[Rfam]
RNA sequence: GCCUUGAGGCAAGGUUGGACUUACGAAUUGUGUCAGGUCCGGAAGGAAGCAGCACUAAGUAUGCUCUGGCUUGUGCCUUAAGUUAUU
Numbered sequence: 001g002c003c004u005u006g007a008g009g010c011a012a013g014g015u016u017g018g019a020c021u022u023a024c025g026a027a028u029u030g031u032g033u034c035a036g037g038u039c040c041g042g043a044a045g046g047a048a049g050c051a052g053c054a055c056u057a058a059g060u061a062u063g064c065u066c067u068g069g070c071u072u073g074u075g076c077c078u079u080a081a082g083u084u085a086u087u
Stems, first nucleotide, its partner, number of pairs: 004081006010073001012072006020063001022061003030055004038047003
A member of the RNA family "Bacterial small signal recognition particle RNA" from Pediococcus acidilactici, 87 nucleotides long.
On this family, see Rosenblad et al., Nucleic Acids Res 2003: "SRPDB: Signal Recognition Particle Database".
By type it is a non-coding RNA gene.
Lineage of the source: Bacteria > Bacillati > Bacilli > Pediococcus > Pediococcus acidilactici.